Small nucleolar RNA snoR100: a 108-nucleotide RNA sequence from Rhododendron williamsianum.
The family's RNA type in Rfam is H/ACA-box small nucleolar RNA.
The base pairs follow the family's consensus structure, which was predicted with WAR.
Rfam links the family to the GO terms nucleolus and RNA processing.
RNA sequence: UAAUGAAAGAAGCACGGUAAUGUGCAAAUAAAUUGAAUUGGGUCUCUAGGUCUGCCUUCUCUUAUAUCAUUUGGCUUUUACGUGGGGACAUGGUUCCGUAACAAAACA
Numbered sequence: 001u002a003a004u005g006a007a008a009g010a011a012g013c014a015c016g017g018u019a020a021u022g023u024g025c026a027a028a029u030a031a032a033u034u035g036a037a038u039u040g041g042g043u044c045u046c047u048a049g050g051u052c053u054g055c056c057u058u059c060u061c062u063u064a065u066a067u068c069a070u071u072u073g074g075c076u077u078u079u080a081c082g083u084g085g086g087g088a089c090a091u092g093g094u095u096c097c098g099u100a101a102c103a104a105a106a107c108a
Stems, first nucleotide, its partner, number of pairs: 012025004040091001042089003050081002054075003